[Rfam]
RNA sequence: UGUCAAGAGUCAUUGGCGUCGUUUUGGCGAGCAGAUUUCUUUUGCCUGAAAAAAGGUGAGAGAAAAAUG
Numbered sequence: 001u002g003u004c005a006a007g008a009g010u011c012a013u014u015g016g017c018g019u020c021g022u023u024u025u026g027g028c029g030a031g032c033a034g035a036u037u038u039c040u041u042u043u044g045c046c047u048g049a050a051a052a053a054a055g056g057u058g059a060g061a062g063a064a065a066a067a068u069g
Stems, first nucleotide, its partner, number of pairs: 010063002013060002017058004022054004029047001031045005

A member of the RNA family "S-element" from Mesorhizobium zhangyense, 69 nucleotides long. The family's consensus secondary structure is taken from published work. NCBI's taxonomy places the organism under Bacteria, Pseudomonadati, Alphaproteobacteria, Hyphomicrobiales, Mesorhizobium. It is annotated as a cis-regulatory element. On this family, see Venkova-Canova et al., Mol Microbiol 2004: "Two discrete elements are required for the replication of a repABC plasmid: an antisense RNA and a stem-loop structure". Rfam describes the family as follows. This family represents a group of S-elements from p42d and related plasmids. The S-element has multiple functions and is believed to act as a negative regulator of repC transcription, be required for efficient replication and act as a translational enhancer of repC.